[Rfam]
RNA sequence: CCCACACUCAUGUGUGUAGGACCCCAAAGGAUCACCAUUAAAUUUGACACAGAUCUCUAGAAAAGUCAAGUCUCACACUCAUGUGAUAACUUUUCUAGAGAUCUAUGUCAAAUUUAAUGGUGAUCCUUUGGGGUCCUACACGCAUGGGUGUGGG
Numbered sequence: 001c002c003c004a005c006a007c008u009c010a011u012g013u014g015u016g017u018a019g020g021a022c023c024c025c026a027a028a029g030g031a032u033c034a035c036c037a038u039u040a041a042a043u044u045u046g047a048c049a050c051a052g053a054u055c056u057c058u059a060g061a062a063a064a065g066u067c068a069a070g071u072c073u074c075a076c077a078c079u080c081a082u083g084u085g086a087u088a089a090c091u092u093u094u095c096u097a098g099a100g101a102u103c104u105a106u107g108u109c110a111a112a113u114u115u116a117a118u119g120g121u122g123a124u125c126c127u128u129u130g131g132g133g134u135c136c137u138a139c140a141c142g143c144a145u146g147g148g149u150g151u152g153g154g
Stems, first nucleotide, its partner, number of pairs: 002153012015140014030125003034121016051104016068087001069082001
Annotation
Shown here is a 154-nucleotide RNA from Amborella trichopoda, a member of the family "MIR8565 microRNA precursor family". The family's consensus secondary structure was predicted with RNAalifold. Rfam links the family to the GO terms miRNA-mediated post-transcriptional gene silencing and RISC complex. It scores 143 bits against the family's covariance model.